[Rfam]
RNA sequence: ACUCCAUGAUGAACAAACGACAAGCAUAUGGCUGAGUCCUGAAUGAUGUCAUCUUAACUCUGAGAAGU
Numbered sequence: 001a002c003u004c005c006a007u008g009a010u011g012a013a014c015a016a017a018c019g020a021c022a023a024g025c026a027u028a029u030g031g032c033u034g035a036g037u038c039c040u041g042a043a044u045g046a047u048g049u050c051a052u053c054u055u056a057a058c059u060c061u062g063a064g065a066a067g068u
Stems, first nucleotide, its partner, number of pairs: 001068002003065002